The family of this 93-nucleotide sequence from Anolis carolinensis is "mir-223 microRNA precursor family".
For this family Rfam cites "Vertebrate microRNA genes" (Lim et al., Science, 2003).
NCBI's taxonomy places the organism under Eukaryota, Bilateria, Tetrapoda, Sauropsida, Anolis.

RNA sequence: ACGCAGGGCUUCCCUCCGUGUAUUUGACGAUCUGAUCGCACACUCCGUCUGCACCAGAGUGUCAGUUUGUCAAAUAUACAAAGGGCGGCCUCU
Numbered sequence: 001a002c003g004c005a006g007g008g009c010u011u012c013c014c015u016c017c018g019u020g021u022a023u024u025u026g027a028c029g030a031u032c033u034g035a036u037c038g039c040a041c042a043c044u045c046c047g048u049c050u051g052c053a054c055c056a057g058a059g060u061g062u063c064a065g066u067u068u069g070u071c072a073a074a075u076a077u078a079c080a081a082a083g084g085g086c087g088g089c090c091u092c093u
Stems, first nucleotide, its partner, number of pairs: 012085004018079001020077011032065002040062003044058002